[Rfam]
Description
The record is a 79-nucleotide sequence from Anguilla anguilla, which matches "mir-181 microRNA precursor family" in Rfam. Its family is annotated with RISC complex and miRNA-mediated post-transcriptional gene silencing in the Gene Ontology. The literature on the family includes a 2001 paper in Cell by Ambros, "microRNAs: tiny regulators with great potential". The base pairs follow the family's consensus structure, which was predicted with PFOLD. NCBI's taxonomy places the organism under Eukaryota, Craniata, Actinopteri, Teleostei, Anguilla.

RNA sequence: UGGCUGCGAUAAACAUUCAUUGCUGUCGGUGGGUUUCUGGUGAACAGCUCACUGACCGCUGAAUGCACACUGCGGUACA
Dot-bracket structure: ((.(((((.....((((((.((..(((((((.(((..........))).))))))))).)))))).....)))))..))